[Rfam]
RNA: Plastid-clpP 5UTR RNA
RNA sequence: CAAUUAUGUUCUUAGGAACAAAGAGAAGCAGAUUUAUUUUAACCCGAUAAGUAUCAAUAUGCAAUGGG
Numbered sequence: 001c002a003a004u005u006a007u008g009u010u011c012u013u014a015g016g017a018a019c020a021a022a023g024a025g026a027a028g029c030a031g032a033u034u035u036a037u038u039u040u041a042a043c044c045c046g047a048u049a050a051g052u053a054u055c056a057a058u059a060u061g062c063a064a065u066g067g068g
Stems, first nucleotide, its partner, number of pairs: 004023002007020005043068003051060003